Small nucleolar RNA SNORD2: a 69-nucleotide RNA from Callorhinchus milii. Its family is annotated with RNA processing and nucleolus in the Gene Ontology.

RNA sequence: GAGUGAAAUGAUGCUUACCAUCUUUCGGGACUGACCUGAUAUGGAGAUACAUUACUUUACUGAUCACUC
Numbered sequence: 001g002a003g004u005g006a007a008a009u010g011a012u013g014c015u016u017a018c019c020a021u022c023u024u025u026c027g028g029g030a031c032u033g034a035c036c037u038g039a040u041a042u043g044g045a046g047a048u049a050c051a052u053u054a055c056u057u058u059a060c061u062g063a064u065c066a067c068u069c
Stems, first nucleotide, its partner, number of pairs: 001069006
NCBI's taxonomy places the organism under Eukaryota, Opisthokonta, Craniata, Callorhinchidae, Callorhinchus.